[Rfam]
RNA sequence: GUGCAUCCUGUAGGAAUUGAACCUAUGACUUUGCCAAUUAUGAGUAGGGCGCUUUAACCACUUAGCCAUGGAUGC
Numbered sequence: 001g002u003g004c005a006u007c008c009u010g011u012a013g014g015a016a017u018u019g020a021a022c023c024u025a026u027g028a029c030u031u032u033g034c035c036a037a038u039u040a041u042g043a044g045u046a047g048g049g050c051g052c053u054u055u056a057a058c059c060a061c062u063u064a065g066c067c068a069u070g071g072a073u074g075c
Base pairs, nucleotide, nucleotide: 003075004074005073006072007071008070010026011025012024013023014022040069041068042067044066045065047063048062049061051059

Background
Rfam assigns this 75-nucleotide RNA from Cuscuta australis to the family "Plastid-ycf2 5UTR RNA". Plastid ycf2 is a non-coding RNA (ncRNA) recognised in plastids. It was found in the prime untranslated region (5UTR) of ycf2 genes, it presents a tRNA-like motif which suggests it can be involved in mRNA maturation, particularly involved in defining the precise 5' end of the transcript.